[Rfam]
RNA sequence: ACCUUAUUGUUGGCUAAUGCUACACCAACAAGGCAGACAUACAUCCUGUGGAGUAAAACAUGAGCGAUAAAAUAAUUCACCUGACAGAU
Dot-bracket structure: .......(((((..((....(((.(((...(((...........))).))).))).....))..)))))...(...((....))...).
Numbered sequence: 001a002c003c004u005u006a007u008u009g010u011u012g013g014c015u016a017a018u019g020c021u022a023c024a025c026c027a028a029c030a031a032g033g034c035a036g037a038c039a040u041a042c043a044u045c046c047u048g049u050g051g052a053g054u055a056a057a058a059c060a061u062g063a064g065c066g067a068u069a070a071a072a073u074a075a076u077u078c079a080c081c082u083g084a085c086a087g088a089u
Stems, first nucleotide, its partner, number of pairs: 008069005015062002021055003025051003031047003073088001077084002
Rfam assigns this 89-nucleotide RNA sequence from Affinibrenneria salicis to the family "TrxA 5' UTR thermometer". About the family: Involved in protection against oxidative stress. The pairing is the family consensus, mapped onto this sequence. The family's RNA type in Rfam is RNA thermoregulator. Taxonomically the source falls in Affinibrenneria (Bacteria, Pseudomonadati, Gammaproteobacteria, Enterobacterales).